The record is a 96-nucleotide RNA sequence from Raineyella antarctica, which matches "Glycine riboswitch aptamer" in Rfam.
Lineage of the source: Bacteria > Actinomycetota > Actinomycetes > Propionibacteriaceae > Raineyella.
Rfam links the family to the GO term glycine biosynthetic process.
From the family's description: This family represents the bacterial glycine riboswitch.
RNA sequence: UGACCCGCGGCGGGAGAACCUGCCGAUCACGUCAGCAGGUGCCGUAGGAGCAAAUCCUCCCCAGGAAUCUCUCAGGCCCAGCACCGCCGCGGUAGG
Dot-bracket structure: .....((((((((.....((((.............)))).((((...(((....(.......).....))).).)))......)))))))).....